The family of this 436-nucleotide sequence from Corynebacterium sp. KPL1989 is "Bacterial RNase P class A".
Pairs were carried over by alignment from the consensus structure, which is taken from published work.
A search with the family's covariance model found it, with a score of 270 bits.
By type it is a ribozyme.
[Rfam]
RNA sequence: UGAGCUGGCCGGGCGAUCGCGGCUGACAAACUACGCUGACAACCGUGUGGCGUGAGUGAAAGUCGAGGAAAGUCCGGACUCCACAGAGCACGAUGGUUGCUAACAGCAACCCAGGGCAACCUGCGGGCAAGUGCAACAGAAAGUAGACCGCCACCGGGAACGCUGCGAGCACUCGCGACGCUUCCGGCGGUGAGGGUGAAAGGGUGCGGUAAGAGCGCACCAGCAUGCCAGGUGACUGGCGUGGCUAGGUAAACCCCAUUGGGAGCAAGGCAUCACGGCGCGCCACGGUGCGUGCCUGCUCGAAUGCUUGAGGGCUGCUCGCCCGAUAUUCGAAGGUAGCUGCUUGAGGUCACCAGCAAUGGUCGGCCCAGAUGGAUGAUCGCCCACGCACCACCACGGUGCGGGACAGAAUCCGGCUUAUAGGCUGGCUCAUUCA
Numbered sequence: 001u002g003a004g005c006u007g008g009c010c011g012g013g014c015g016a017u018c019g020c021g022g023c024u025g026a027c028a029a030a031c032u033a034c035g036c037u038g039a040c041a042a043c044c045g046u047g048u049g050g051c052g053u054g055a056g057u058g059a060a061a062g063u064c065g066a067g068g069a070a071a072g073u074c075c076g077g078a079c080u081c082c083a084c085a086g087a088g089c090a091c092g093a094u095g096g097u098u099g100c101u102a103a104c105a106g107c108a109a110c111c112c113a114g115g116g117c118a119a120c121c122u123g124c125g126g127g128c129a130a131g132u133g134c135a136a137c138a139g140a141a142a143g144u145a146g147a148c149c150g151c152c153a154c155c156g157g158g159a160a161c162g163c164u165g166c167g168a169g170c171a172c173u174c175g176c177g178a179c180g181c182u183u184c185c186g187g188c189g190g191u192g193a194g195g196g197u198g199a200a201a202g203g204g205u206g207c208g209g210u211a212a213g214a215g216c217g218c219a220c221c222a223g224c225a226u227g228c229c230a231g232g233u234g235a236c237u238g239g240c241g242u243g244g245c246u247a248g249g250u251a252a253a254c255c256c257c258a259u260u261g262g263g264a265g266c267a268a269g270g271c272a273u274c275a276c277g278g279c280g281c282g283c284c285a286c287g288g289u290g291c292g293u294g295c296c297u298g299c300u301c302g303a304a305u306g307c308u309u310g311a312g313g314g315c316u317g318c319u320c321g322c323c324c325g326a327u328a329u330u331c332g333a334a335g336g337u338a339g340c341u342g343c344u345u346g347a348g349g350u351c352a353c354c355a356g357c358a359a360u361g362g363u364c365g366g367c368c369c370a371g372a373u374g375g376a377u378g379a380u381c382g383c384c385c386a387c388g389c390a391c392c393a394c395c396a397c398g399g400u401g402c403g404g405g406a407c408a409g410a411a412u413c414c415g416g417c418u419u420a421u422a423g424g425c426u427g428g429c430u431c432a433u434u435c436a
Base pairs, nucleotide, nucleotide: 001432002431003430004429005428006427007426008425009424010423011421012384013383014382015381016380017379018378020065021064022063023062024061027058028057070419071418072417074416075415076414077413078412079265080264081263082262086320087319088318089317091261092260093259094258095257096110097109098108099107100106111125112123113122114121115120126256127255131254132253133250134249148195149194150191151190152189154187155186156185157184158183203221204220205219206218207217208216223245224243225242226241227240228239229238230237231236269341270340271339300333301332302331303330304329305328312324313323314322315321348367350365352363353362354361355360